[Rfam]
RNA: Early nodulin 40
Organism: Hibiscus syriacus
RNA sequence: AUAGGAUCCAUCCAUGGGGUCUUCAUAAAAGCAUAUUGGAGAGGUUUCGGAUCCCCUCGAUCCGAACCGUCCACAACCGAAAACUGUUUGUCGGUGAUUCACCAAUAUCUCGGUGCUAAACAGAAAACACCUUGCGCAUGGGGGAUCCAUCCUGUAGAGGUAGAUAGCUGUCUGCCCUGGAGGGUUUUUGGCUAAUGCACUGGCGAAUCGGCAAGUCACGAGAAGGGCAAUGAACUCAUGUUUUUA
Numbered sequence: 001a002u003a004g005g006a007u008c009c010a011u012c013c014a015u016g017g018g019g020u021c022u023u024c025a026u027a028a029a030a031g032c033a034u035a036u037u038g039g040a041g042a043g044g045u046u047u048c049g050g051a052u053c054c055c056c057u058c059g060a061u062c063c064g065a066a067c068c069g070u071c072c073a074c075a076a077c078c079g080a081a082a083a084c085u086g087u088u089u090g091u092c093g094g095u096g097a098u099u100c101a102c103c104a105a106u107a108u109c110u111c112g113g114u115g116c117u118a119a120a121c122a123g124a125a126a127a128c129a130c131c132u133u134g135c136g137c138a139u140g141g142g143g144g145a146u147c148c149a150u151c152c153u154g155u156a157g158a159g160g161u162a163g164a165u166a167g168c169u170g171u172c173u174g175c176c177c178u179g180g181a182g183g184g185u186u187u188u189u190g191g192c193u194a195a196u197g198c199a200c201u202g203g204c205g206a207a208u209c210g211g212c213a214a215g216u217c218a219c220g221a222g223a224a225g226g227g228c229a230a231u232g233a234a235c236u237c238a239u240g241u242u243u244u245u246a
Stems, first nucleotide, its partner, number of pairs: 037073004086208006105196002233244002